[Rfam]
RNA sequence: GAUGGAUCGGAUUCAAUCCAUUAACUAAUUUUUUUACUUAUGGAUGGAUUGGAUUGAUCCAUUA
Numbered sequence: 001g002a003u004g005g006a007u008c009g010g011a012u013u014c015a016a017u018c019c020a021u022u023a024a025c026u027a028a029u030u031u032u033u034u035u036a037c038u039u040a041u042g043g044a045u046g047g048a049u050u051g052g053a054u055u056g057a058u059c060c061a062u063u064a
Stems, first nucleotide, its partner, number of pairs: 004060005011054012027038001029036001
The family of this 64-nucleotide RNA sequence from Trifolium pratense is "MIR5291 microRNA precursor family". The family has 3 seed sequences and 168 matches in Rfam 15.1. The source organism's lineage runs through Eukaryota, Spermatophyta, Magnoliopsida, fabids and Trifolium. The base pairs follow the family's consensus structure, which was predicted with RNAalifold.